[Rfam]
RNA sequence: GGAUUACUCCUUUACGCUUUCGCGUUUGGUUGAUAAAGAUUCGCACCUCUAUCAAACCGGGUAAUCCCACCUCUUGGCAAGACCUGCUGUCAGAUCAAAUCUGAACUACUACAUUUUUAGAAUUAUCCGAAAUUUUGGAUAAUUAUACCGGCCAAUCUGCGCGUCUCUUGCCUUUAGUUUUUUACCAAGAUUGUAGUUU
Number, nucleotide and partner (000 for none) at each position: 001g067002g066003a065004u064005u063006a062007c061008u000009c060010c059011u000012u000013u000014a025015c024016g023017c022018u000019u000020u000021c000022g017023c016024g015025u014026u000027u000028g058029g057030u056031u055032g053033a052034u051035a050036a000037a048038g047039a000040u000041u000042c000043g000044c000045a000046c000047c038048u037049c000050u035051a034052u033053c032054a000055a031056a030057c029058c028059g010060g009061g007062u006063a005064a004065u003066c002067c001068c000069a000070c000071c000072u000073c000074u000075u150076g149077g148078c000079a000080a000081g144082a143083c000084c000085u141086g000087c000088u000089g106090u105091c103092a102093g101094a100095u099096c000097a000098a000099a095100u094101c093102u092103g091104a000105a090106c089107u000108a000109c137110u000111a135112c000113a134114u000115u000116u000117u000118u000119a000120g000121a000122a000123u000124u000125a000126u000127c000128c000129g000130a000131a000132a000133u000134u113135u111136u000137g109138g000139a000140u000141a085142a000143u082144u081145a000146u000147a000148c077149c076150g075151g000152c000153c000154a000155a000156u000157c000158u000159g000160c000161g000162c000163g000164u000165c000166u000167c000168u000169u000170g197171c196172c000173u000174u000175u193176a192177g191178u190179u188180u187181u000182u000183u000184a000185c000186c000187a180188a179189g000190a178191u177192u176193g175194u000195a000196g171197u170198u000199u000